Overview
The record is a 71-nucleotide sequence, which matches "Small nucleolar RNA SNORD2" in Rfam. Its family is annotated with nucleolus and RNA processing in the Gene Ontology. The literature on the family includes a 2004 paper in Gene by Zhou et al., "Identification of a novel box C/D snoRNA from mouse nucleolar cDNA library".
RNA sequence: GUAUGAAGUGAUGGCAUCAUCUUUCGGGACUGACCUGUUAUGGAGAUAAUCACUAAUUUAACUGAUCAUAC
Numbered sequence: 001g002u003a004u005g006a007a008g009u010g011a012u013g014g015c016a017u018c019a020u021c022u023u024u025c026g027g028g029a030c031u032g033a034c035c036u037g038u039u040a041u042g043g044a045g046a047u048a049a050u051c052a053c054u055a056a057u058u059u060a061a062c063u064g065a066u067c068a069u070a071c
Stems, first nucleotide, its partner, number of pairs: 001071006